[Rfam]
RNA sequence: GGGGGCGCACUGGCUUCGACGUGGAUACGGCGAGGUACGUGGCGUGUCGGAGGUCUCAGUAACUCCGUUAUUAACUGCUGAGAACGUUAUAACUGCCAACGAUGACGCGCAGUUCGCGAUGGCCGCGUAAGCAGCUUUUCGCGACAGAUGCUCCCUAACCGGAGCCCGUUAAUCAGAGCUUUGCCUGUGGGCUUUGCUUAACGACAUACAGCAGGCUUGGCGAGUCGGGCUUCAUCCUUCGACGCCUCGCGACAUUCCGAAGGGUCCUCGAAGAACAUGGCCUGUCCGUGGACAGUGGUCGGAGAGGUAAAAAGUGAAUCGCGGACUACACACGUAGAAGCGUACAUUCAAUGGUUCGCGGACGCGGGUUCGAUUCCCGCCGCCUCCAUUC
Numbered sequence: 001g002g003g004g005g006c007g008c009a010c011u012g013g014c015u016u017c018g019a020c021g022u023g024g025a026u027a028c029g030g031c032g033a034g035g036u037a038c039g040u041g042g043c044g045u046g047u048c049g050g051a052g053g054u055c056u057c058a059g060u061a062a063c064u065c066c067g068u069u070a071u072u073a074a075c076u077g078c079u080g081a082g083a084a085c086g087u088u089a090u091a092a093c094u095g096c097c098a099a100c101g102a103u104g105a106c107g108c109g110c111a112g113u114u115c116g117c118g119a120u121g122g123c124c125g126c127g128u129a130a131g132c133a134g135c136u137u138u139u140c141g142c143g144a145c146a147g148a149u150g151c152u153c154c155c156u157a158a159c160c161g162g163a164g165c166c167c168g169u170u171a172a173u174c175a176g177a178g179c180u181u182u183g184c185c186u187g188u189g190g191g192c193u194u195u196g197c198u199u200a201a202c203g204a205c206a207u208a209c210a211g212c213a214g215g216c217u218u219g220g221c222g223a224g225u226c227g228g229g230c231u232u233c234a235u236c237c238u239u240c241g242a243c244g245c246c247u248c249g250c251g252a253c254a255u256u257c258c259g260a261a262g263g264g265u266c267c268u269c270g271a272a273g274a275a276c277a278u279g280g281c282c283u284g285u286c287c288g289u290g291g292a293c294a295g296u297g298g299u300c301g302g303a304g305a306g307g308u309a310a311a312a313a314g315u316g317a318a319u320c321g322c323g324g325a326c327u328a329c330a331c332a333c334g335u336a337g338a339a340g341c342g343u344a345c346a347u348u349c350a351a352u353g354g355u356u357c358g359c360g361g362a363c364g365c366g367g368g369u370u371c372g373a374u375u376c377c378c379g380c381c382g383c384c385u386c387c388a389u390u391c
Stems, first nucleotide, its partner, number of pairs: 001387007020360007032349003035345006043334005048067005055082007118139002121136003125132002167203006174196008183216006220250005226244002235263002238260002266307004273300002280293001282291001284326007364380005
This 391-nucleotide RNA sequence from Lujinxingia litoralis belongs to the Rfam family "transfer-messenger RNA". Pairs were carried over by alignment from the consensus structure, which is taken from published work. Gene Ontology term of the family: RNA catabolic process. By type it is a non-coding RNA gene. It scores 157 bits against the family's covariance model.